The family of this 59-nucleotide sequence from Melianthus villosus is "Plastid-psbA-3 3UTR RNA". Rfam classes the family as a cis-regulatory element. The sequence is in the family's curated seed alignment. Plastid psbA-3 is a non-coding RNA (ncRNA) present in plastids. The base pairs follow the family's consensus structure, which was predicted with LocARNA.
Nucleotides: 059
Base pairs, nucleotide, nucleotide: 002056003055004054005053006052007051008050009049010048011047012046013045014044020037021036022035023034024033025032
Number, partner (000 for none) and nucleotide at each position: 001000a002056a003055a004054a005053g006052g007051a008050g009049c010048a011047a012046u013045a014044c015000g016000a017000a018000c019000c020037u021036u022035c023034u024033u025032g026000a027000u028000a029000a030000a031000a032025c033024a034023a035022g036021a037020a038000a039000u040000u041000g042000g043000g044014g045013u046012a047011u048010u049009g050008c051007u052006c053005c054004u055003u056002u057000a058000c059000u